[Rfam]
RNA sequence: GAAGGAGCCAUCCAAAGGGAUCGCAUUGAUCCUAACCCUUUAAUUUCUUGCCUUCACAUGUAGGGGAAGUAUUUGUAAUACUAGUUUCUUUUUAACUCCUAAACUGCAUGUGAUGUGAAGUGGGAUCAUGCUAUCCCUUUGGAUACCUCCUU
Numbered sequence: 001g002a003a004g005g006a007g008c009c010a011u012c013c014a015a016a017g018g019g020a021u022c023g024c025a026u027u028g029a030u031c032c033u034a035a036c037c038c039u040u041u042a043a044u045u046u047c048u049u050g051c052c053u054u055c056a057c058a059u060g061u062a063g064g065g066g067a068a069g070u071a072u073u074u075g076u077a078a079u080a081c082u083a084g085u086u087u088c089u090u091u092u093u094a095a096c097u098c099c100u101a102a103a104c105u106g107c108a109u110g111u112g113a114u115g116u117g118a119a120g121u122g123g124g125a126u127c128a129u130g131c132u133a134u135c136c137c138u139u140u141g142g143a144u145a146c147c148u149c150c151u152u
Base pairs, nucleotide, nucleotide: 002152003151004150005149006148010144011143012142013141014140015139016138017137018136019135020134021133023131024130025129026128028127029126030125031124032123036120
mir-393 microRNA precursor family: a 152-nucleotide RNA from Coffea arabica. For this family Rfam cites "Role of microRNAs and other sRNAs of plants in their changing environments" (Kruszka et al., J Plant Physiol, 2012). The organism belongs to Coffea, within Eukaryota. Rfam 15.1 lists 1,052 matches to the family in 221 species.